[Rfam]
RNA sequence: CCCGUUUUUUGGCAAUGGUAGAACUCACACUGGUGGGAUAGAUGGAUCCGGUGGUUCUAGACUUGCCAACAACUGAC
Number, nucleotide and partner (000 for none) at each position: 001c000002c000003c075004g074005u000006u072007u000008u000009u069010u068011g067012g066013c065014a064015a063016u000017g000018g000019u059020a058021g057022a056023a055024c054025u000026c000027a000028c053029a052030c051031u050032g049033g048034u000035g000036g000037g000038a000039u000040a000041g000042a000043u000044g000045g000046a000047u000048c033049c032050g031051g030052u029053g028054g024055u023056u022057c021058u020059a019060g000061a000062c000063u015064u014065g013066c012067c011068a010069a009070c000071a000072a006073c000074u004075g003076a000077c000

A member of the RNA family "mir-182 microRNA precursor family" from Salvelinus namaycush, 77 nucleotides long. A reference for the family is Tesfaye et al. (2009), "Identification and expression profiling of microRNAs during bovine oocyte maturation using heterologous approach", Mol Reprod Dev. The source organism's lineage runs through Eukaryota, Metazoa, Vertebrata, Salmoniformes and Salvelinus.